[Rfam]
RNA: Qrr RNA
Organism: Vibrio furnissii
RNA sequence: CGACCCUUAUUAAGCCGAGGGUCACCUAGCCAACUGACGUUGUUAGUGAAUACAUUUUGUUCACACUAUAUAUCAGCCAAUCGUGCUCAUUACGAUUGGCUAUUUUUUU
Numbered sequence: 001c002g003a004c005c006c007u008u009a010u011u012a013a014g015c016c017g018a019g020g021g022u023c024a025c026c027u028a029g030c031c032a033a034c035u036g037a038c039g040u041u042g043u044u045a046g047u048g049a050a051u052a053c054a055u056u057u058u059g060u061u062c063a064c065a066c067u068a069u070a071u072a073u074c075a076g077c078c079a080a081u082c083g084u085g086c087u088c089a090u091u092a093c094g095a096u097u098g099g100c101u102a103u104u105u106u107u108u109u
Stems, first nucleotide, its partner, number of pairs: 002023005040075001042073002046064007077099008